Rfam assigns this 72-nucleotide sequence from Mangrovihabitans endophyticus to the family "ASpks TB sRNA". The literature on the family includes a 2009 paper in Mol Microbiol by Arnvig and Young, "Identification of small RNAs in Mycobacterium tuberculosis". By type it is an antisense RNA. The organism belongs to Mangrovihabitans, within Bacteria. It scores 57 bits against the family's covariance model.

[Rfam]
RNA sequence: CUUCAGCGAGCCCAGCCACACCGGCGCACCCUCACGACCCCGCCCGUACGUGGCCAGCAACGCACCGGCCUC
Numbered sequence: 001c002u003u004c005a006g007c008g009a010g011c012c013c014a015g016c017c018a019c020a021c022c023g024g025c026g027c028a029c030c031c032u033c034a035c036g037a038c039c040c041c042g043c044c045c046g047u048a049c050g051u052g053g054c055c056a057g058c059a060a061c062g063c064a065c066c067g068g069c070c071u072c
Stems, first nucleotide, its partner, number of pairs: 015025003031068002035062002040057001042055001044053003